The family of this 109-nucleotide sequence from Nicoletella semolina is "t44 RNA".
RNA sequence: CGUUUAUUUAUUCAAAAUCACACACAUACCAUAUACUGACUAUCGGGGUGCUGAAAAUUGUAAUAAAAACAGUUUUUGGUCGAUAGAUUAGGGUAUGUGGAGGCAAAAC
Numbered sequence: 001c002g003u004u005u006a007u008u009u010a011u012u013c014a015a016a017a018u019c020a021c022a023c024a025c026a027u028a029c030c031a032u033a034u035a036c037u038g039a040c041u042a043u044c045g046g047g048g049u050g051c052u053g054a055a056a057a058u059u060g061u062a063a064u065a066a067a068a069a070c071a072g073u074u075u076u077u078g079g080u081c082g083a084u085a086g087a088u089u090a091g092g093g094u095a096u097g098u099g100g101a102g103g104c105a106a107a108a109c
Base pairs, nucleotide, nucleotide: 023099024098025097026096027095028094029093030092037090038089039088041086042084043083044082045081050080051079052078053077054076055075056074057073058072059071

A search with the family's covariance model found it, with a score of 56 bits. Rfam classes the family as a small RNA. NCBI's taxonomy places the organism under Bacteria, Pseudomonadota, Gammaproteobacteria, Pasteurellaceae, Nicoletella.